Rfam assigns this 67-nucleotide RNA sequence from Halalkalibacter nanhaiisediminis to the family "Bacillaceae-1 RNA". NCBI's taxonomy places the organism under Bacteria, Bacillati, Bacillota, Caryophanales, Halalkalibacter. It scores 44 bits against the family's covariance model.

[Rfam]
RNA sequence: AGCUAAAGAUACUCGGCUAAGUUCGCCCACGUCCUGUGGGCAACACCGAUUCCUCUCCUCACGAGGA
Numbered sequence: 001a002g003c004u005a006a007a008g009a010u011a012c013u014c015g016g017c018u019a020a021g022u023u024c025g026c027c028c029a030c031g032u033c034c035u036g037u038g039g040g041c042a043a044c045a046c047c048g049a050u051u052c053c054u055c056u057c058c059u060c061a062c063g064a065g066g067a
Stems, first nucleotide, its partner, number of pairs: 011051001013049004026040005054066004